[Rfam]
This 130-nucleotide sequence from Salarias fasciatus belongs to the Rfam family "Small nucleolar RNA SNORA77". The source organism's lineage runs through Eukaryota, Metazoa, Bilateria, Euacanthomorphacea and Salarias. The family has 19 seed sequences and 843 matches in Rfam 15.1. Rfam's curators write: ACA63 (SNORA77) is a member of the H/ACA class of snoRNAs that guide the sites of modification of uridines to pseudouridines. This snoRNA was identified by computational screening and its expression in mouse experimentally verified by Northern blot and primer extension analysis. ACA63 is proposed to guide the pseudouridylation of 18S rRNA U814. The base pairs follow the family's consensus structure, which was predicted with RNAalifold. Rfam classes the family as an H/ACA-box small nucleolar RNA.
RNA sequence: GCAGACUCACUCUGUUCCCUGCUGCUCGCUCCAGCCGGGAACUUUUUCUGUCUGCGACAUGAACGUGCAGAAUGUGACAUUUUUACUGGCUUUGUAGAAAGCUGGUGUCAACGUGUUCUGCUACAUUAGA
Numbered sequence: 001g002c003a004g005a006c007u008c009a010c011u012c013u014g015u016u017c018c019c020u021g022c023u024g025c026u027c028g029c030u031c032c033a034g035c036c037g038g039g040a041a042c043u044u045u046u047u048c049u050g051u052c053u054g055c056g057a058c059a060u061g062a063a064c065g066u067g068c069a070g071a072a073u074g075u076g077a078c079a080u081u082u083u084u085a086c087u088g089g090c091u092u093u094g095u096a097g098a099a100a101g102c103u104g105g106u107g108u109c110a111a112c113g114u115g116u117u118c119u120g121c122u123a124c125a126u127u128a129g130a
Stems, first nucleotide, its partner, number of pairs: 001055006014042006022034003067121007074112002